[Rfam]
Nucleotides: 112
Base pairs, nucleotide, nucleotide: 007099008098009097010096011064012063013062014061017033018032019031020030021029041057042056043055044054068093069092070091071090074087075086076085077084
Number, partner (000 for none) and nucleotide at each position: 001000c002000g003000c004000a005000u006000a007099c008098g009097a010096u011064a012063c013062g014061g015000g016000g017033g018032c019031u020030u021029g022000a023000g024000u025000g026000a027000a028000u029021c030020a031019g032018g033017c034000u035000g036000a037000g038000a039000u040000g041057g042056c043055a044054g045000c046000a047000u048000a049000u050000u051000c052000c053000g054044c055043u056042g057041c058000g059000g060000a061014c062013c063012g064011u065000u066000a067000a068093u069092c070091u071090g072000a073000u074087c075086u076085g077084g078000a079000u080000a081000a082000u083000g084077c085076c086075a087074g088000c089000g090071u091070a092069g093068a094000g095000a096010a097009u098008c099007g100000a101000a102000u103000g104000u105000c106000c107000g108000g109000g110000a111000u112000a